[Rfam]
RNA sequence: GUAGGAAGUUUGAAGCCAUAGCAGAAGCGCUCACAAUGUGGCCAUGUCAGAUUCUAACAAAUCUAAAUUCUGCU
Numbered sequence: 001g002u003a004g005g006a007a008g009u010u011u012g013a014a015g016c017c018a019u020a021g022c023a024g025a026a027g028c029g030c031u032c033a034c035a036a037u038g039u040g041g042c043c044a045u046g047u048c049a050g051a052u053u054c055u056a057a058c059a060a061a062u063c064u065a066a067a068u069u070c071u072g073c074u
Stems, first nucleotide, its partner, number of pairs: 011044002015042003020074007027039003049064005
A member of the RNA family "Mammalian CPEB3 ribozyme" from Crocodylus porosus, 74 nucleotides long. About the family: The mammalian CPEB3 ribozyme is a self cleaving RNA located in the second intron of the CPEB3 gene which belongs to a family of genes regulating messenger RNA polyadenylation. This ribozyme is highly conserved and found only in mammals. The CPEB3 ribozyme is structurally and biochemically related to the human hepatitis delta virus (HDV) ribozyme and the HDV ribozyme is proposed to have arisen from the human transcriptome. There is currently only one other known self cleaving ribozyme in mammals, the CoTC motif. The literature on the family includes a 2006 paper in Science by Salehi-Ashtiani et al., "A genomewide search for ribozymes reveals an HDV-like sequence in the human CPEB3 gene". The source organism's lineage runs through Eukaryota, Craniata, Sauria, Crocodylidae and Crocodylus. Its family is annotated with RNA nuclease activity in the Gene Ontology.